[Rfam]
RNA sequence: AUCGUUCAUCCUAAAGGACGGAAGUAGGCUAGCCGAAGGAACGCACU
Numbered sequence: 001a002u003c004g005u006u007c008a009u010c011c012u013a014a015a016g017g018a019c020g021g022a023a024g025u026a027g028g029c030u031a032g033c034c035g036a037a038g039g040a041a042c043g044c045a046c047u
Stems, first nucleotide, its partner, number of pairs: 003043005009018003021044001027034002

A member of the RNA family "Glutamine riboswitch aptamer (glnA leader)", 47 nucleotides long. Rfam's curators put it in the seed alignment. On this family, see Ames and Breaker, RNA Biol 2011: "Bacterial aptamers that selectively bind glutamine". The family's consensus secondary structure is taken from published work.